A member of the RNA family "ASdes TB sRNA" from Streptomyces colonosanans, 68 nucleotides long. A search with the family's covariance model found it, with a score of 60 bits. Rfam 15.1 lists 1,192 matches to the family in 825 species. Rfam classes the family as a small RNA.
Nucleotides: 068
Stems, first nucleotide, its partner, number of pairs: 004063003008059002012029002017025001035056004040052003
Number, partner (000 for none) and nucleotide at each position: 001000a002000g003000c004063u005062u006061g007000u008059c009058g010000g011000g012029g013028u014000c015000g016000a017025c018000c019000g020000c021000g022000c023000g024000c025017g026000a027000g028013g029012c030000g031000a032000g033000g034000a035056g036055g037054u038053a039000g040052u041051c042050g043000c044000g045000c046000a047000u048000g049000a050042c051041g052040a053038u054037g055036c056035c057000g058009u059008g060000g061006c062005g063004g064000g065000c066000c067000u068000c